A member of the RNA family "Vault RNA" from Bos taurus, 97 nucleotides long. The family has 73 seed sequences and 2,873 matches in Rfam 15.1. For this family Rfam cites "Evolution of Vault RNAs" (Stadler et al., Mol Biol Evol, 2009).

[Rfam]
RNA sequence: GGGCUGGCCGUAGCUCAGCGGUUCCUUCGACUACACAGUGUUUAAAUUACUCUCUCUGAGGGUGGUUCGAGACCCGCGGGCGCUCUCCAGUCCUUUU
Numbered sequence: 001g002g003g004c005u006g007g008c009c010g011u012a013g014c015u016c017a018g019c020g021g022u023u024c025c026u027u028c029g030a031c032u033a034c035a036c037a038g039u040g041u042u043u044a045a046a047u048u049a050c051u052c053u054c055u056c057u058g059a060g061g062g063u064g065g066u067u068c069g070a071g072a073c074c075c076g077c078g079g080g081c082g083c084u085c086u087c088c089a090g091u092c093c094u095u096u097u
Base pairs, nucleotide, nucleotide: 002092003091004090005089006088007087013081014080015079016078018077019076020075021074026071027070028069029068030067